Rfam assigns this 64-nucleotide RNA sequence from Aureimonas sp. Leaf454 to the family "terC RNA". A search with the family's covariance model found it, with a score of 56 bits. Rfam classes the family as a cis-regulatory element. Lineage of the source: Bacteria > Pseudomonadota > Alphaproteobacteria > Aurantimonadaceae > Aureimonas.
RNA sequence: ACCCGGGUCCGGGCCCCUCUGGCGAGCCGACAUGCCGGCCACCUCGCGAUGUCGGACCGUUUCA
Numbered sequence: 001a002c003c004c005g006g007g008u009c010c011g012g013g014c015c016c017c018u019c020u021g022g023c024g025a026g027c028c029g030a031c032a033u034g035c036c037g038g039c040c041a042c043c044u045c046g047c048g049a050u051g052u053c054g055g056a057c058c059g060u061u062u063c064a
Stems, first nucleotide, its partner, number of pairs: 006058007022047005029040001
Dot-bracket structure: .....(((((((.........(((((..(..........)..)))))....)))))))......